RNA sequence: AGGUCAUUUCAAAGAGGGCUCAUAGGGCUGUGAAAUCAGGAGCUUUUAUUGUCAUCACCAAAGAUUGAAGUUCUACGCAGGAUGCCAUAGCACUCAGUAGGGCUGUUUUCCUAGGGUGCUAUAGGA
Numbered sequence: 001a002g003g004u005c006a007u008u009u010c011a012a013a014g015a016g017g018g019c020u021c022a023u024a025g026g027g028c029u030g031u032g033a034a035a036u037c038a039g040g041a042g043c044u045u046u047u048a049u050u051g052u053c054a055u056c057a058c059c060a061a062a063g064a065u066u067g068a069a070g071u072u073c074u075a076c077g078c079a080g081g082a083u084g085c086c087a088u089a090g091c092a093c094u095c096a097g098u099a100g101g102g103c104u105g106u107u108u109u110c111c112u113a114g115g116g117u118g119c120u121a122u123a124g125g126a
Stems, first nucleotide, its partner, number of pairs: 002059003006055002014047008023039001026037002073118001076115001079112004087106005093100002

The family of this 126-nucleotide sequence from Otolemur garnettii is "Small nucleolar RNA SNORA25". The family's consensus secondary structure was predicted with RNAfold. It scores 94 bits against the family's covariance model. Rfam classes the family as an H/ACA-box small nucleolar RNA. Its family is annotated with nucleolus and RNA processing in the Gene Ontology. About the family: ACA25 is a member of the H/ACA class of snoRNA that guide the sites of modification of uridines to pseudouridines.